[Rfam]
RNA: mir-146 microRNA precursor family
Organism: Anolis carolinensis
RNA sequence: CUGGCAGUUCCAAGCUUUGAGAACUGGUUUUCGUGGACUGGUUUCCAUUUAGUCUUCUCAGUCCAUAAUGCUCAGUUUUCCAGCUUGGCUGCACCUG
Numbered sequence: 001c002u003g004g005c006a007g008u009u010c011c012a013a014g015c016u017u018u019g020a021g022a023a024c025u026g027g028u029u030u031u032c033g034u035g036g037a038c039u040g041g042u043u044u045c046c047a048u049u050u051a052g053u054c055u056u057c058u059c060a061g062u063c064c065a066u067a068a069u070g071c072u073c074a075g076u077u078u079u080c081c082a083g084c085u086u087g088g089c090u091g092c093a094c095c096u097g
Stems, first nucleotide, its partner, number of pairs: 010088002013085003020079008035064006